[Rfam]
RNA sequence: GGGGUCGUGGCCAAGUCCGGCAUGGCGACUGACUCCAGAGGCUAUCGCGCCCGGGACGACACUCCAGACUGAUAUACUGAGCGACCGGCUGAUCACCGGCGCUUUGAUGACCCUCUGGAGUUCCGAGGCGCAACCGGAGAUAUCAGUCGAUCGGGGGUUCAAAUCCCUCCGACCCCA
Numbered sequence: 001g002g003g004g005u006c007g008u009g010g011c012c013a014a015g016u017c018c019g020g021c022a023u024g025g026c027g028a029c030u031g032a033c034u035c036c037a038g039a040g041g042c043u044a045u046c047g048c049g050c051c052c053g054g055g056a057c058g059a060c061a062c063u064c065c066a067g068a069c070u071g072a073u074a075u076a077c078u079g080a081g082c083g084a085c086c087g088g089c090u091g092a093u094c095a096c097c098g099g100c101g102c103u104u105u106g107a108u109g110a111c112c113c114u115c116u117g118g119a120g121u122u123c124c125g126a127g128g129c130g131c132a133a134c135c136g137g138a139g140a141u142a143u144c145a146g147u148c149g150a151u152c153g154g155g156g157g158u159u160c161a162a163a164u165c166c167c168u169c170c171g172a173c174c175c176c177a
Stems, first nucleotide, its partner, number of pairs: 001176007010026004028147005153169005
RNA: tRNA
Organism: Halorhabdus sp. CBA1104